[Rfam]
Overview: mir-202 microRNA precursor family: a 76-nucleotide RNA from Scytalopus superciliaris. Lineage of the source: Eukaryota > Euteleostomi > Saurischia > Theropoda > Scytalopus. Rfam links the family to the GO terms RISC complex and miRNA-mediated post-transcriptional gene silencing. Rfam 15.1 lists 673 matches to the family in 631 species.
RNA sequence: UUGUUACUUUUUCCCACGCAUAUGGCUCUUUGAAAAUUGGUUCUAAAGAGGUAUGGGACAUGGGGAAACAGGGUAA
Numbered sequence: 001u002u003g004u005u006a007c008u009u010u011u012u013c014c015c016a017c018g019c020a021u022a023u024g025g026c027u028c029u030u031u032g033a034a035a036a037u038u039g040g041u042u043c044u045a046a047a048g049a050g051g052u053a054u055g056g057g058a059c060a061u062g063g064g065g066a067a068a069c070a071g072g073g074u075a076a
Base pairs, nucleotide, nucleotide: 010067011066012065013064014063015062016061018059021055022054023053026050027049028048029047030046031045032044